[Rfam]
RNA sequence: GCCGGGCCUUGACCUAUGAAUUGACAGCCGGUGGCCACCGCAUCUCGCCUGUCAGUUUCACAGGUCAAGCCACGG
Numbered sequence: 001g002c003c004g005g006g007c008c009u010u011g012a013c014c015u016a017u018g019a020a021u022u023g024a025c026a027g028c029c030g031g032u033g034g035c036c037a038c039c040g041c042a043u044c045u046c047g048c049c050u051g052u053c054a055g056u057u058u059c060a061c062a063g064g065u066c067a068a069g070c071c072a073c074g075g
Stems, first nucleotide, its partner, number of pairs: 002075003006071001008069001010067002013064003018058010029047003
Shown here is a 75-nucleotide RNA sequence from Petromyzon marinus, a member of the family "mir-192/215 microRNA precursor family". Rfam describes the family as follows. This family represents the human microRNA (miRNA) precursors mir-192 and mir-215. Animal miRNAs are transcribed as ~70nt precursors and subsequently processed by the Dicer enzyme to give a ~22nt product. In this case the mature sequence comes from the 5' arm of the precursor. The extents of the hairpin precursors are not generally known and are estimated based on hairpin prediction. A reference for the family is Lagos-Quintana et al. (2003), "New microRNAs from mouse and human", RNA.